[Rfam]
RNA: mir-958 microRNA precursor family
RNA sequence: CGGUGGGUUUUUAGCAAGUAGAAUAGCAGGCUUAUCACAGGUUCCUUUAACCCACUGUGAGAUUCUUCUAUUCUACUUUCGAGAAACACCC
Numbered sequence: 001c002g003g004u005g006g007g008u009u010u011u012u013a014g015c016a017a018g019u020a021g022a023a024u025a026g027c028a029g030g031c032u033u034a035u036c037a038c039a040g041g042u043u044c045c046u047u048u049a050a051c052c053c054a055c056u057g058u059g060a061g062a063u064u065c066u067u068c069u070a071u072u073c074u075a076c077u078u079u080c081g082a083g084a085a086a087c088a089c090c091c
Stems, first nucleotide, its partner, number of pairs: 002090004012081001014079001016078011028067003035060005041055002